[Rfam]
Shown here is a 137-nucleotide sequence from Danionella cerebrum, a member of the family "Small nucleolar RNA SNORA68". The match comes from Rfam's covariance-model search (68 bits). The organism belongs to Danionella, within Eukaryota. On this family, see Ganot et al., Genes Dev 1997: "The family of box ACA small nucleolar RNAs is defined by an evolutionarily conserved secondary structure and ubiquitous sequence elements essential for RNA accumulation". Rfam 15.1 lists 1,079 matches to the family in 643 species. U68 is a member of the H/ACA class of small nucleolar RNAs (snoRNAs) which act as guides in the the modification of uridines to pseudouridines.
RNA sequence: CCUGCACAUAAACCCAAAGGGCAUUUCUUUCUCUUGUUUUGUCCUUGCUAUGUGUGCAGACAGCAAACUGAACCUUGUCUUCUUUCUCAGGCAUCACACACACAUGCCUCUGAAAGUAAAUUCAAGGUGCCACAAUC
Numbered sequence: 001c002c003u004g005c006a007c008a009u010a011a012a013c014c015c016a017a018a019g020g021g022c023a024u025u026u027c028u029u030u031c032u033c034u035u036g037u038u039u040u041g042u043c044c045u046u047g048c049u050a051u052g053u054g055u056g057c058a059g060a061c062a063g064c065a066a067a068c069u070g071a072a073c074c075u076u077g078u079c080u081u082c083u084u085u086c087u088c089a090g091g092c093a094u095c096a097c098a099c100a101c102a103c104a105u106g107c108c109u110c111u112g113a114a115a116g117u118a119a120a121u122u123c124a125a126g127g128u129g130c131c132a133c134a135a136u137c
Stems, first nucleotide, its partner, number of pairs: 002059008019044005027036001070130001072128005082116005089109006